RAGATH-18 RNA: a 77-nucleotide RNA. Rfam's curators write: Actinobacteria, Firmicutes, Fusobacteria, Thermotogae (1 example). It is one of the family's seed sequences. By type it is a small RNA.

[Rfam]
RNA sequence: CCCUUGGAGCGUUAUGUCAAACAAAAGUAGUUGAUUAAUUUGAUUUAAUAACAAAAUUGGACGCGAUGAAUAGGGAA
Numbered sequence: 001c002c003c004u005u006g007g008a009g010c011g012u013u014a015u016g017u018c019a020a021a022c023a024a025a026a027g028u029a030g031u032u033g034a035u036u037a038a039u040u041u042g043a044u045u046u047a048a049u050a051a052c053a054a055a056a057u058u059g060g061a062c063g064c065g066a067u068g069a070a071u072a073g074g075g076a077a
Base pairs, nucleotide, nucleotide: 001075002074003073004072009064010063011062012061013060022059023058024057030052031051032050035048036047037046038045